[Rfam]
RNA sequence: UUCUAUCUAUCAAUGGAUAAGGCUUUGGUCUUAGUAUAUAUGAGUUCGUGAAACUUUUGAAAGUAAAGGAGCAAUACGAAAUCUCUUGAUAUAACAAGAGAUUUCGUAUUGCUCCUUU
Numbered sequence: 001u002u003c004u005a006u007c008u009a010u011c012a013a014u015g016g017a018u019a020a021g022g023c024u025u026u027g028g029u030c031u032u033a034g035u036a037u038a039u040a041u042g043a044g045u046u047c048g049u050g051a052a053a054c055u056u057u058u059g060a061a062a063g064u065a066a067a068g069g070a071g072c073a074a075u076a077c078g079a080a081a082u083c084u085c086u087u088g089a090u091a092u093a094a095c096a097a098g099a100g101a102u103u104u105c106g107u108a109u110u111g112c113u114c115c116u117u118u
Stems, first nucleotide, its partner, number of pairs: 002017005065118013079104003083100005
Dot-bracket structure: .(((((......)))))...............................................(((((((((((((.(((.(((((........))))).))).)))))))))))))

Overview:
The family of this 118-nucleotide sequence from Dasiphora fruticosa is "Plastid-psbA-1 3UTR RNA". For this family Rfam cites "Retrograde signaling in plants: A critical review focusing on the GUN pathway and beyond" (Richter et al., Plant Commun, 2023).